The family of this 58-nucleotide RNA sequence from Brevundimonas abyssalis is "terC RNA". The base pairs follow the family's consensus structure, which is taken from published work.

RNA sequence: CUCGCGGGACGGGCCCCUCUGGCGCGGUCUUCGGACCACGUGAUGUCGGACCGCAUCG
Number, nucleotide and partner (000 for none) at each position: 001c000002u000003c000004g000005c000006g052007g051008g000009a000010c048011g047012g046013g000014c000015c000016c000017c000018u000019c000020u000021g000022g041023c040024g039025c000026g037027g036028u035029c034030u000031u000032c000033g000034g029035a028036c027037c026038a000039c024040g023041u022042g000043a000044u000045g000046u012047c011048g010049g000050a000051c007052c006053g000054c000055a000056u000057c000058g000